[Rfam]
RNA sequence: CCAAUCGUCAAAUUGGUUGUGACGUGUUGCUUUAUGAUUUCAUAUCACAGCCAUUUUUGACAAGUUGGA
Numbered sequence: 001c002c003a004a005u006c007g008u009c010a011a012a013u014u015g016g017u018u019g020u021g022a023c024g025u026g027u028u029g030c031u032u033u034a035u036g037a038u039u040u041c042a043u044a045u046c047a048c049a050g051c052c053a054u055u056u057u058u059g060a061c062a063a064g065u066u067g068g069a
Stems, first nucleotide, its partner, number of pairs: 005063001007061006014053009025044003
Dot-bracket structure: ....(.((((((.(((((((((..(((..............))))))))))))..)))))).)......

Rfam assigns this 69-nucleotide sequence to the family "mir-2 microRNA precursor family". The base pairs follow the family's consensus structure, which was predicted with PFOLD. Rfam 15.1 lists 918 matches to the family in 280 species.